[Rfam]
RNA sequence: GCUGGCAAUGACGACACACUUGCCCUCACUGAGAGCAGCACUCGCUGAGGAAAAUCAUUCUAUGUGCUCAAGGAAGCCGAGCCAGC
Numbered sequence: 001g002c003u004g005g006c007a008a009u010g011a012c013g014a015c016a017c018a019c020u021u022g023c024c025c026u027c028a029c030u031g032a033g034a035g036c037a038g039c040a041c042u043c044g045c046u047g048a049g050g051a052a053a054a055u056c057a058u059u060c061u062a063u064g065u066g067c068u069c070a071a072g073g074a075a076g077c078c079g080a081g082c083c084a085g086c
Base pairs, nucleotide, nucleotide: 001086002085003084004083005082006081
RNA: Small nucleolar RNA SNORD103/SNORD85
Organism: Upupa epops